A member of the RNA family "Mammalian CPEB3 ribozyme" from Crocodylus porosus, 76 nucleotides long.
RNA sequence: AGCACAAGUUUGAAGCCAUAGUAGAAGCAUUCACAGUGCAACCCCGUCAUAUUCCAGCAAAUCUGUGAAUUCUGCU
Numbered sequence: 001a002g003c004a005c006a007a008g009u010u011u012g013a014a015g016c017c018a019u020a021g022u023a024g025a026a027g028c029a030u031u032c033a034c035a036g037u038g039c040a041a042c043c044c045c046g047u048c049a050u051a052u053u054c055c056a057g058c059a060a061a062u063c064u065g066u067g068a069a070u071u072c073u074g075c076u
Base pairs, nucleotide, nucleotide: 012044015042020076021075022074023073024072025071026070027039028038029037048065049064051062052061053060
Dot-bracket structure: ...........[..[....((((((((((.......)))..].]...((.(((......))).))....)))))))

Notes: For this family Rfam cites "A genomewide search for ribozymes reveals an HDV-like sequence in the human CPEB3 gene" (Salehi-Ashtiani et al., Science, 2006). The source organism's lineage runs through Eukaryota, Tetrapoda, Sauropsida, Archelosauria and Crocodylus. The base pairs follow the family's consensus structure, which is taken from published work. Rfam links the family to the GO term RNA nuclease activity.